[Rfam]
RNA sequence: GGAUUCCCGCCGAGAAAGAACUAGCCAUUCACUCGUAGCGAGUCUUGGAGGGUUUGUGGUAACACAGGCUUUUAAGCGUAGACAGUGAGGUAAUGAGCGGAAAGCCAAGAGCGGUUGAAGGGAUAGAGCUCCGAAAUUUCGUGAAUAAACAGGAAGGUCGAUAAGCUCAGGAGUUUAGAAGACAACACUGGGGUUUUCAAUAAACGGCAAGAAAAUCUCAGCUUCCUCGGAGUCAAUGACCU
Numbered sequence: 001g002g003a004u005u006c007c008c009g010c011c012g013a014g015a016a017a018g019a020a021c022u023a024g025c026c027a028u029u030c031a032c033u034c035g036u037a038g039c040g041a042g043u044c045u046u047g048g049a050g051g052g053u054u055u056g057u058g059g060u061a062a063c064a065c066a067g068g069c070u071u072u073u074a075a076g077c078g079u080a081g082a083c084a085g086u087g088a089g090g091u092a093a094u095g096a097g098c099g100g101a102a103a104g105c106c107a108a109g110a111g112c113g114g115u116u117g118a119a120g121g122g123a124u125a126g127a128g129c130u131c132c133g134a135a136a137u138u139u140c141g142u143g144a145a146u147a148a149a150c151a152g153g154a155a156g157g158u159c160g161a162u163a164a165g166c167u168c169a170g171g172a173g174u175u176u177a178g179a180a181g182a183c184a185a186c187a188c189u190g191g192g193g194u195u196u197u198c199a200a201u202a203a204a205c206g207g208c209a210a211g212a213a214a215a216u217c218u219c220a221g222c223u224u225c226c227u228c229g230g231a232g233u234c235a236a237u238g239a240c241c242u
Stems, first nucleotide, its partner, number of pairs: 011035004018030003022210001024208002038086002042083004046078002048073011126234001128233006151227006157183003162177004188221011
Annotation
Rfam assigns this 242-nucleotide RNA from Oceanobacillus oncorhynchi to the family "Group II catalytic intron D1-D4-6". NCBI's taxonomy places the organism under Bacteria, Bacillati, Bacilli, Bacillaceae, Oceanobacillus. A search with the family's covariance model found it, with a score of 148 bits. Rfam describes the family as follows. Group II introns are found in rRNA, tRNA and mRNA of organelles in fungi, plants and protists, and also in mRNA in bacteria. The literature on the family includes a 2001 paper in Trends Genet by Bonen and Vogel, "The ins and outs of group II introns". Pairs were carried over by alignment from the consensus structure.